Notes
U2 spliceosomal RNA: a 191-nucleotide sequence from Camelus ferus. The organism belongs to Camelus, within Eukaryota. Gene Ontology terms of the family: mRNA branch site recognition, U2 snRNP and pre-mRNA branch point binding. Its Rfam clan is "U2 clan". It is annotated as a spliceosomal small nuclear RNA. Pairs were carried over by alignment from the consensus structure, which is taken from published work. U2 is a small nuclear RNA (snRNA) component of the spliceosome (involved in pre-mRNA splicing).

[Rfam]
RNA sequence: AUCGCUUUGCGGCCUUUGGGCUAGGAUCAAGUGUAGUAUCUGUUCUUAUCAGUUUAAUAUCUGCUAUGUCCUCUUUCCAAAGACAAUAUAUUAAAUGGAUUUUUGGAGCAGGGAGUUGGAAUAGGAGCUUGCUCUGUCCACUGCACACACUGACCUGGUACUGCCGUACCUCCAGGAGCAGUUCCUCUCCU
Numbered sequence: 001a002u003c004g005c006u007u008u009g010c011g012g013c014c015u016u017u018g019g020g021c022u023a024g025g026a027u028c029a030a031g032u033g034u035a036g037u038a039u040c041u042g043u044u045c046u047u048a049u050c051a052g053u054u055u056a057a058u059a060u061c062u063g064c065u066a067u068g069u070c071c072u073c074u075u076u077c078c079a080a081a082g083a084c085a086a087u088a089u090a091u092u093a094a095a096u097g098g099a100u101u102u103u104u105g106g107a108g109c110a111g112g113g114a115g116u117u118g119g120a121a122u123a124g125g126a127g128c129u130u131g132c133u134c135u136g137u138c139c140a141c142u143g144c145a146c147a148c149a150c151u152g153a154c155c156u157g158g159u160a161c162u163g164c165c166g167u168a169c170c171u172c173c174a175g176g177a178g179c180a181g182u183u184c185c186u187c188u189c190c191u
Stems, first nucleotide, its partner, number of pairs: 007026002011022004047066002050063003068084003072080001112144001114142003118138002124135004149182004154176005